[Rfam]
RNA sequence: ACCCCACUUAAUUAAGCCGACUUUUAGAUGUUACUCAAUAUUCUAGAAGUGUGCUAAGGGUGGGCAAAUUAAAGUGAUGAUAUGUGUAUGGUGUCAUUCUUUUCUUAGUAGAGGAUACCAAAGAAAUUUUAUGCACAA
Numbered sequence: 001a002c003c004c005c006a007c008u009u010a011a012u013u014a015a016g017c018c019g020a021c022u023u024u025u026a027g028a029u030g031u032u033a034c035u036c037a038a039u040a041u042u043c044u045a046g047a048a049g050u051g052u053g054c055u056a057a058g059g060g061u062g063g064g065c066a067a068a069u070u071a072a073a074g075u076g077a078u079g080a081u082a083u084g085u086g087u088a089u090g091g092u093g094u095c096a097u098u099c100u101u102u103u104c105u106u107a108g109u110a111g112a113g114g115a116u117a118c119c120a121a122a123g124a125a126a127u128u129u130u131a132u133g134c135a136c137a138a
Stems, first nucleotide, its partner, number of pairs: 020050008077132004089120007098112003